[Rfam]
RNA sequence: CCCCCAGCUCUGGUGAUGAACCCACGUGCCUCUGAGCUGUCGUGAUUUUGGCUUCAAAGUAAACGCUCUGAAGAGAUGGGGCAGAAG
Numbered sequence: 001c002c003c004c005c006a007g008c009u010c011u012g013g014u015g016a017u018g019a020a021c022c023c024a025c026g027u028g029c030c031u032c033u034g035a036g037c038u039g040u041c042g043u044g045a046u047u048u049u050g051g052c053u054u055c056a057a058a059g060u061a062a063a064c065g066c067u068c069u070g071a072a073g074a075g076a077u078g079g080g081g082c083a084g085a086a087g
Base pairs, nucleotide, nucleotide: 002087005084007082008081009080010079
The family of this 87-nucleotide sequence from Equus caballus is "Small nucleolar RNA SNORD105". Rfam links the family to the GO terms RNA processing and nucleolus. U105 belongs to the C/D family of snoRNAs. It is encoded in an intron of the Suppressor of SWI4 1 homolog (Ssf-1) (Peter Pan homolog) gene. and is predicted to guide 2'O-ribose methylation of residue U799 of the small 18S rRNA subunit. It is one of the family's seed sequences. Pairs were carried over by alignment from the consensus structure. Lineage of the source: Eukaryota > Metazoa > Teleostomi > Perissodactyla > Equus.